A member of the RNA family "SAM riboswitch aptamer (S box leader)" from Clostridium puniceum, 111 nucleotides long. Rfam describes the family as follows. The SAM riboswitch is found upstream of a number of genes which code for proteins involved in methionine or cysteine biosynthesis in Gram-positive bacteria. The SAM riboswitch acts at the level of transcription termination control.
RNA sequence: AACUUAUCAAGAGUGGUGGAGGGACUGGCCCUAAGAAACCCAGCAACCGAUGUAUUCUGCGUGAAUAUAUAAGGUGCUAAAUCCUGCAGUGUAAGAACUGAUAGAUAAGGU
Numbered sequence: 001a002a003c004u005u006a007u008c009a010a011g012a013g014u015g016g017u018g019g020a021g022g023g024a025c026u027g028g029c030c031c032u033a034a035g036a037a038a039c040c041c042a043g044c045a046a047c048c049g050a051u052g053u054a055u056u057c058u059g060c061g062u063g064a065a066u067a068u069a070u071a072a073g074g075u076g077c078u079a080a081a082u083c084c085u086g087c088a089g090u091g092u093a094a095g096a097a098c099u100g101a102u103a104g105a106u107a108a109g110g111u
Base pairs, nucleotide, nucleotide: 001111003109004108005107006106007105008104013041015040016039017038021031022030023029025086027084028083042078043077044076045075047074048073050070051069052068053067054066055065056064082103087100088099089098090097